[Rfam]
RNA sequence: GUAUGACAUGAUGGUUUCAUCUUUCGGGACUGAUGUGACAUGAAAGACAUUCUCUACUUUACUGAUCGUAC
Numbered sequence: 001g002u003a004u005g006a007c008a009u010g011a012u013g014g015u016u017u018c019a020u021c022u023u024u025c026g027g028g029a030c031u032g033a034u035g036u037g038a039c040a041u042g043a044a045a046g047a048c049a050u051u052c053u054c055u056a057c058u059u060u061a062c063u064g065a066u067c068g069u070a071c
Stems, first nucleotide, its partner, number of pairs: 001071006
RNA: Small nucleolar RNA SNORD2
Organism: Danionella cerebrum